Rfam assigns this 86-nucleotide RNA sequence from Pelotomaculum propionicicum to the family "c-di-GMP-I riboswitch aptamer".
[Rfam]
RNA sequence: UCCUUGUUUGUGCAAACCUCUUGAAAAAGAGGGGCGCGGGGCUGUGGGGUCUAAAGCCACAAGGCUAUGAUUGCCAGGCUGCAUUU
Numbered sequence: 001u002c003c004u005u006g007u008u009u010g011u012g013c014a015a016a017c018c019u020c021u022u023g024a025a026a027a028a029g030a031g032g033g034g035c036g037c038g039g040g041g042c043u044g045u046g047g048g049g050u051c052u053a054a055a056g057c058c059a060c061a062a063g064g065c066u067a068u069g070a071u072u073g074c075c076a077g078g079c080u081g082c083a084u085u086u
Base pairs, nucleotide, nucleotide: 012037013036017032018031019030020029021028022027040080041079042078043077045076047075048074049071050070051069056065057064058063

Lineage of the source: Bacteria > Bacillota > Eubacteriales > Desulfotomaculaceae > Pelotomaculum. The family's consensus secondary structure is taken from published work. Rfam's curators write: GEMM was predicted in a large-scale screen for bacterial structured RNA regulatory elements. The match comes from Rfam's covariance-model search (46 bits).